[Rfam]
RNA sequence: AUGCUUUGAUGAUGCAAAUAUUGGUUUCGCUCAUUUCUGAGAGGCAAUGAUGUAACAUUGUUCCACUUGGCUGUCUGAGCAU
Numbered sequence: 001a002u003g004c005u006u007u008g009a010u011g012a013u014g015c016a017a018a019u020a021u022u023g024g025u026u027u028c029g030c031u032c033a034u035u036u037c038u039g040a041g042a043g044g045c046a047a048u049g050a051u052g053u054a055a056c057a058u059u060g061u062u063c064c065a066c067u068u069g070g071c072u073g074u075c076u077g078a079g080c081a082u
Stems, first nucleotide, its partner, number of pairs: 001082006

Description: A member of the RNA family "Small nucleolar RNA SNORD53/SNORD92" from Hymenochirus boettgeri, 82 nucleotides long. The literature on the family includes a 1996 paper in Cell by Kiss-Laszlo et al., "Site-specific ribose methylation of preribosomal RNA: a novel function for small nucleolar RNAs". Its Rfam clan is "SNORD52 clan". It scores 66 bits against the family's covariance model. By type it is a C/D-box small nucleolar RNA. Rfam links the family to the GO terms nucleolus and RNA processing.